[Rfam]
RNA sequence: GGGUCUGCAGUUCACCCAGACAUCGCCGCGGCGUAAGCCGAGCUAAACCUGCCU
Numbered sequence: 001g002g003g004u005c006u007g008c009a010g011u012u013c014a015c016c017c018a019g020a021c022a023u024c025g026c027c028g029c030g031g032c033g034u035a036a037g038c039c040g041a042g043c044u045a046a047a048c049c050u051g052c053c054u
Stems, first nucleotide, its partner, number of pairs: 001017004029040004